[Rfam]
RNA sequence: AACGAUACUGUUUCAGUUAACUGUGAAUAGCUUGCUUGCACCGUAUUGUUCUUGUUUUUCGGUUAGUUAAACAUCGUACUUCAUAUUUGAACGUUCUGCCGGAAUUCAUUAUCAAUAGAGGUAAAGUCGCAACCCCAAAUCGUAAAGGAAACCGUAGCACGUCGUAUGCAAGAACGUGCCACG
Numbered sequence: 001a002a003c004g005a006u007a008c009u010g011u012u013u014c015a016g017u018u019a020a021c022u023g024u025g026a027a028u029a030g031c032u033u034g035c036u037u038g039c040a041c042c043g044u045a046u047u048g049u050u051c052u053u054g055u056u057u058u059u060c061g062g063u064u065a066g067u068u069a070a071a072c073a074u075c076g077u078a079c080u081u082c083a084u085a086u087u088u089g090a091a092c093g094u095u096c097u098g099c100c101g102g103a104a105u106u107c108a109u110u111a112u113c114a115a116u117a118g119a120g121g122u123a124a125a126g127u128c129g130c131a132a133c134c135c136c137a138a139a140u141c142g143u144a145a146a147g148g149a150a151a152c153c154g155u156a157g158c159a160c161g162u163c164g165u166a167u168g169c170a171a172g173a174a175c176g177u178g179c180c181a182c183g
Stems, first nucleotide, its partner, number of pairs: 002143005007024002010021003031126002034122004040116001045112002053108002057104007078094002080091004153183003157179006163172001165170001
Shown here is a 183-nucleotide RNA sequence from Shigella boydii, a member of the family "Chromosome-encoded Shigella sRNA B".
The base pairs follow the family's consensus structure, which was predicted with RNAfold.
On this family, see Peng et al., PLoS One 2011: "An integrated approach for finding overlooked genes in Shigella".
The source organism's lineage runs through Bacteria, Pseudomonadota, Gammaproteobacteria, Shigella and Shigella boydii.